[Rfam]
RNA sequence: UGAAAGCAGAGGGCGGAACAGGCGGCCGCCACCCAUUGUUAGGAGAUGUGGGAGUGUCACCCCACCUAUUUCA
Numbered sequence: 001u002g003a004a005a006g007c008a009g010a011g012g013g014c015g016g017a018a019c020a021g022g023c024g025g026c027c028g029c030c031a032c033c034c035a036u037u038g039u040u041a042g043g044a045g046a047u048g049u050g051g052g053a054g055u056g057u058c059a060c061c062c063c064a065c066c067u068a069u070u071u072c073a
Stems, first nucleotide, its partner, number of pairs: 001073005009066001012030005021058004032043001048065005
The record is a 73-nucleotide sequence, which matches "skipping-rope RNA" in Rfam. Rfam classes the family as a small RNA. The sequence is in the family's curated seed alignment.